A member of the RNA family "tRNA" from Syncephalastrum racemosum, 82 nucleotides long.
Pairs were carried over by alignment from the consensus structure, which is taken from published work.
Lineage of the source: Eukaryota > Opisthokonta > Mucoromycota > Mucorales > Syncephalastrum.
It scores 54 bits against the family's covariance model.
RNA sequence: GCAAACAUGUCCGAGUGGUCUAAGGAGCUACGUUCAGGUCGUAGUCUCGAAAGAGGCGUGAGUUCGAAUCUCACUGUUUGCA
Dot-bracket structure: (((((((..(((...........))).(((((.......))))).............(((((.......)))))))))))).